[Rfam]
RNA sequence: AUUAUAUAACCAUUUGUACCGUAGACAGCAGGUGUCUCUGACUUAAUUUCCUGCCGAGGUCAUGACGAAUAAAAGAGAUUUCUUUUACUUUGAAAUGAUACGCCUCUAUGUCUACUUUCCGGCAUAGAGGCUUUUUAUUAUGAUC
Numbered sequence: 001a002u003u004a005u006a007u008a009a010c011c012a013u014u015u016g017u018a019c020c021g022u023a024g025a026c027a028g029c030a031g032g033u034g035u036c037u038c039u040g041a042c043u044u045a046a047u048u049u050c051c052u053g054c055c056g057a058g059g060u061c062a063u064g065a066c067g068a069a070u071a072a073a074a075g076a077g078a079u080u081u082c083u084u085u086u087a088c089u090u091u092g093a094a095a096u097g098a099u100a101c102g103c104c105u106c107u108a109u110g111u112c113u114a115c116u117u118u119c120c121g122g123c124a125u126a127g128a129g130g131c132u133u134u135u136u137a138u139u140a141u142g143a144u145c
Base pairs, nucleotide, nucleotide: 028054029053030052031051032050034042035041036040103130104129105128106127107126108125109124110123111122112121
Notes: Ribosomal protein L10 leader: a 145-nucleotide sequence from Jeotgalibacillus sp. R-1-5s-1. For this family Rfam cites "Diverse mechanisms for regulating ribosomal protein synthesis in Escherichia coli" (Zengel and Lindahl, Prog Nucleic Acid Res Mol Biol, 1994).